[Rfam]
RNA sequence: GGCAUCGGAGAAGAAGAGCUGCUCUCCUUCAUCAUUGCAGGGCUAGAUAUGGACUAUCAGCCCAUCAUAUCCGCCCUCGACGUCCGCACCGACCCUGUCUCCGUCGACGAGCUGUUUGCCAUGGUGGCGAACUUCGACC
Numbered sequence: 001g002g003c004a005u006c007g008g009a010g011a012a013g014a015a016g017a018g019c020u021g022c023u024c025u026c027c028u029u030c031a032u033c034a035u036u037g038c039a040g041g042g043c044u045a046g047a048u049a050u051g052g053a054c055u056a057u058c059a060g061c062c063c064a065u066c067a068u069a070u071c072c073g074c075c076c077u078c079g080a081c082g083u084c085c086g087c088a089c090c091g092a093c094c095c096u097g098u099c100u101c102c103g104u105c106g107a108c109g110a111g112c113u114g115u116u117u118g119c120c121a122u123g124g125u126g127g128c129g130a131a132c133u134u135c136g137a138c139c
Base pairs, nucleotide, nucleotide: 005137006136007135008134090106091105092104093103
Small nucleolar RNA Z247: a 139-nucleotide RNA sequence from Aegilops tauschii. Rfam links the family to the GO terms RNA processing and nucleolus. The base pairs follow the family's consensus structure, which was predicted with PFOLD. For this family Rfam cites "The high diversity of snoRNAs in plants: identification and comparative study of 120 snoRNA genes from Oryza sativa" (Chen et al., Nucleic Acids Res, 2003). The family's RNA type in Rfam is C/D-box small nucleolar RNA. The match comes from Rfam's covariance-model search (51 bits).